The family of this 376-nucleotide RNA sequence from Plesiocystis pacifica is "Bacterial RNase P class A".
The match comes from Rfam's covariance-model search (222 bits).
On this family, see Frank and Pace, Annu Rev Biochem 1998: "Ribonuclease P: unity and diversity in a tRNA processing ribozyme".

[Rfam]
RNA sequence: UCGAGAGGCUGAGGUGAUCGCGGUCGGGCCCACUGGGCCGCAGAUCGAGGAAAGUCCGGGCUCCACAGGGCAGGGUGCUUGCGAAAUGCAAGUCGAGGCGACUCGCAGGAAAGUGCCACAGAAAGCAAACCACCGGCUCACGGCCGGAGAGGGUGAAAGGGUGCGGUAAGAGCGCACCGGUUUCCUGGUGACAGGAAGCGCACGGUAAACCCCACUCGGUGCAAGGCCAAACAGAGCCGCGAAUCCGAACCGCGAGGCGAGGAGGAGCAGGGUAGCCCGCCCCAGCGCUCAGGUAGUGCCGCGCAGAAGAAUGAUCGCCACCUGGUCGAGGAGACGACGCCAGGGACAAAACCCGGCUUACGACCCUCUCGACCCC
Numbered sequence: 001u002c003g004a005g006a007g008g009c010u011g012a013g014g015u016g017a018u019c020g021c022g023g024u025c026g027g028g029c030c031c032a033c034u035g036g037g038c039c040g041c042a043g044a045u046c047g048a049g050g051a052a053a054g055u056c057c058g059g060g061c062u063c064c065a066c067a068g069g070g071c072a073g074g075g076u077g078c079u080u081g082c083g084a085a086a087u088g089c090a091a092g093u094c095g096a097g098g099c100g101a102c103u104c105g106c107a108g109g110a111a112a113g114u115g116c117c118a119c120a121g122a123a124a125g126c127a128a129a130c131c132a133c134c135g136g137c138u139c140a141c142g143g144c145c146g147g148a149g150a151g152g153g154u155g156a157a158a159g160g161g162u163g164c165g166g167u168a169a170g171a172g173c174g175c176a177c178c179g180g181u182u183u184c185c186u187g188g189u190g191a192c193a194g195g196a197a198g199c200g201c202a203c204g205g206u207a208a209a210c211c212c213c214a215c216u217c218g219g220u221g222c223a224a225g226g227c228c229a230a231a232c233a234g235a236g237c238c239g240c241g242a243a244u245c246c247g248a249a250c251c252g253c254g255a256g257g258c259g260a261g262g263a264g265g266a267g268c269a270g271g272g273u274a275g276c277c278c279g280c281c282c283c284a285g286c287g288c289u290c291a292g293g294u295a296g297u298g299c300c301g302c303g304c305a306g307a308a309g310a311a312u313g314a315u316c317g318c319c320a321c322c323u324g325g326u327c328g329a330g331g332a333g334a335c336g337a338c339g340c341c342a343g344g345g346a347c348a349a350a351a352c353c354c355g356g357c358u359u360a361c362g363a364c365c366c367u368c369u370c371g372a373c374c375c376c
Stems, first nucleotide, its partner, number of pairs: 001372008010363001011361001013319007021047005027041001052359003056356005061221001063219002068278004073217005078092005093107001094105004108212002113210002115206003130152002133147006160178006179201001180199008225300003228296001236289001238287003270282004